Background
Shown here is an 81-nucleotide RNA sequence from Caenorhabditis remanei, a member of the family "mir-74 microRNA precursor family". It is one of the family's seed sequences. Gene Ontology terms of the family: RISC complex and miRNA-mediated post-transcriptional gene silencing. Its Rfam clan is "mir-73 clan".
Nucleotides: 081
Base pairs, nucleotide, nucleotide: 004078005077006076007075008074009073012070013069014068015067016066018064019063020062021061023059024058025057026056029054030053031052032051033050034048035047
Number, partner (000 for none) and nucleotide at each position: 001000u002000c003000g004078a005077c006076a007075c008074g009073u010000u011000u012070g013069g014068a015067c016066u017000u018064c019063c020062g021061u022000c023059u024058c025057u026056u027000u028000c029054c030053c031052a032051g033050c034048u035047g036000a037000u038000a039000u040000u041000g042000g043000a044000u045000a046000g047035c048034a049000u050033g051032c052031u053030g054029g055000c056026a057025a058024g059023a060000a061021a062020u063019g064018g065000c066016a067015g068014u069013c070012c071000a072000g073009a074008u075007g076006u077005g078004u079000a080000c081000a